This 96-nucleotide RNA sequence from Ruminococcus bovis belongs to the Rfam family "SAM riboswitch aptamer (S box leader)".
RNA sequence: UUCUUAUCAAGAGCGACUGAGGGACAGGCCCUAUGAAGUCCGGCAACCUGCGAAAAGCAAGGUGCUAAUUCCUGCGGUAUAACCGAAAGAUGAGUA
Numbered sequence: 001u002u003c004u005u006a007u008c009a010a011g012a013g014c015g016a017c018u019g020a021g022g023g024a025c026a027g028g029c030c031c032u033a034u035g036a037a038g039u040c041c042g043g044c045a046a047c048c049u050g051c052g053a054a055a056a057g058c059a060a061g062g063u064g065c066u067a068a069u070u071c072c073u074g075c076g077g078u079a080u081a082a083c084c085g086a087a088a089g090a091u092g093a094g095u096a
Stems, first nucleotide, its partner, number of pairs: 001096001003094006013041001015040003021031003025074004042066004047062002049059003070088001075085004